The family of this 79-nucleotide RNA from a Desulfobacteraceae bacterium is "c-di-GMP-I riboswitch aptamer".
The family's consensus secondary structure is taken from published work.
RNA sequence: UUGUGAAAAAGGCAAACCUCUCGAGAGAGUGGGACGCAAAGCCAUCGGCCCGGUAAUCAUGGGUGGCGGGGAUGCCCGA
Numbered sequence: 001u002u003g004u005g006a007a008a009a010a011g012g013c014a015a016a017c018c019u020c021u022c023g024a025g026a027g028a029g030u031g032g033g034a035c036g037c038a039a040a041g042c043c044a045u046c047g048g049c050c051c052g053g054u055a056a057u058c059a060u061g062g063g064u065g066g067c068g069g070g071g072a073u074g075c076c077c078g079a
Base pairs, nucleotide, nucleotide: 012037013036017032018031020029021028022027040073042071043070045069046068047067048064049063050062051061052060